This 126-nucleotide RNA from Macrococcoides bohemicum belongs to the Rfam family "Ribosomal protein L20 leader". The family's consensus secondary structure was predicted with CMfinder. It scores 71 bits against the family's covariance model. NCBI's taxonomy places the organism under Bacteria, Bacillati, Bacilli, Staphylococcaceae, Macrococcoides. This family is a putative r-protein leader autoregulatory structure found in B. subtilis and other low-GC Gram-positive bacteria. It is located in the 5' untranslated regions of mRNAs encoding initiation factor 3 followed by ribosomal proteins L35 and L20 (infC-rpmI-rplT). A Rho-independent transcription terminator structure that is probably involved in regulation is included at the 3' end.
[Rfam]
RNA sequence: ACGGACAAGUAGAAGCAUCCCGCUUCUCGCCCUGAAGACGCAAAGAGCAGUUACAGGGUUAAAUAACAUGGUUAGACAUGUCUAUUUUUUAGCGGGUGCAUUAUGCAUUCGCUUUUUUGUUUGUCU
Numbered sequence: 001a002c003g004g005a006c007a008a009g010u011a012g013a014a015g016c017a018u019c020c021c022g023c024u025u026c027u028c029g030c031c032c033u034g035a036a037g038a039c040g041c042a043a044a045g046a047g048c049a050g051u052u053a054c055a056g057g058g059u060u061a062a063a064u065a066a067c068a069u070g071g072u073u074a075g076a077c078a079u080g081u082c083u084a085u086u087u088u089u090u091a092g093c094g095g096g097u098g099c100a101u102u103a104u105g106c107a108u109u110c111g112c113u114u115u116u117u118u119g120u121u122u123g124u125c126u
Base pairs, nucleotide, nucleotide: 011027012026013025014024015023016022030058031057032056037052038051039050040048041047091113092112093111094110095109096108097107098106099105100104